[Rfam]
RNA: Glycine riboswitch aptamer
RNA sequence: AUGACGUUUGCGGGAGAGACUGUUAUGUUAUUAACAGCGCCGAAGGAGUAAGUAAAUUAAUAUUAGCCAUAUUAUUGAUGAUGAUCUCAGGCAGAAGGACCGUAAGCUGACA
Numbered sequence: 001a002u003g004a005c006g007u008u009u010g011c012g013g014g015a016g017a018g019a020c021u022g023u024u025a026u027g028u029u030a031u032u033a034a035c036a037g038c039g040c041c042g043a044a045g046g047a048g049u050a051a052g053u054a055a056a057u058u059a060a061u062a063u064u065a066g067c068c069a070u071a072u073u074a075u076u077g078a079u080g081a082u083g084a085u086c087u088c089a090g091g092c093a094g095a096a097g098g099a100c101c102g103u104a105a106g107c108u109g110a111c112a
Stems, first nucleotide, its partner, number of pairs: 006107008020037004039092003042088002046086002052079002